Shown here is a 111-nucleotide RNA from Phyllostomus discolor, a member of the family "Small nucleolar RNA SNORD90". Lineage of the source: Eukaryota > Bilateria > Dipnotetrapodomorpha > Tetrapoda > Phyllostomus. The base pairs follow the family's consensus structure, which was predicted with RNAalifold. It is annotated as a C/D-box small nucleolar RNA. Rfam's curators write: snoRNA HBII-295 belongs to the family of C/D snoRNAs. It is the human orthologue of the mouse MBII-295 and has no identified RNA target. The match comes from Rfam's covariance-model search (114 bits).

[Rfam]
RNA sequence: AAAUAAAAUUUUUCGGUGUCUAAUGAUGAGUUUCAUAGGGCAGAUUCUGAGGUGAAAAUCUGAUUCACCAUUGAUACUCAUUCUAUGGAAUCUGAAGACACUUGAAAACCU
Number, nucleotide and partner (000 for none) at each position: 001a000002a000003a000004u000005a000006a000007a000008a000009u000010u000011u000012u000013u104014c000015g102016g101017u100018g099019u098020c097021u096022a000023a000024u000025g000026a000027u000028g000029a000030g091031u090032u089033u088034c087035a086036u085037a081038g000039g079040g078041c000042a000043g075044a000045u000046u074047c073048u000049g071050a000051g069052g068053u067054g066055a065056a064057a000058a000059u000060c000061u000062g000063a000064u056065u055066c054067a053068c052069c051070a000071u049072u000073g047074a046075u043076a000077c000078u040079c039080a000081u037082u000083c000084u000085a036086u035087g034088g033089a032090a031091u030092c000093u000094g000095a000096a021097g020098a019099c018100a017101c016102u015103u000104g013105a000106a000107a000108a000109c000110c000111u000